[Rfam]
RNA sequence: CUGGAAUGAUGAAAGUUAGCCAAAUCGUAUACUGAUGUGCUCCUCCAGGUUCAUUUUGGUCUGUGCACUUGGUGAAAUUUUUUUUCCAAGCACAAGAUGAGAUGACUGGAGUUGAAGUUUGCAUCAGUAUGUGAUGAUAAAAACUGAGAUUGGUUACUUACUGACCAGA
Dot-bracket structure: ((((................................................................................................................................................................)))).
Rfam assigns this 169-nucleotide RNA from Digitaria exilis to the family "small nucleolar RNA snoR127". It is annotated as a C/D-box small nucleolar RNA.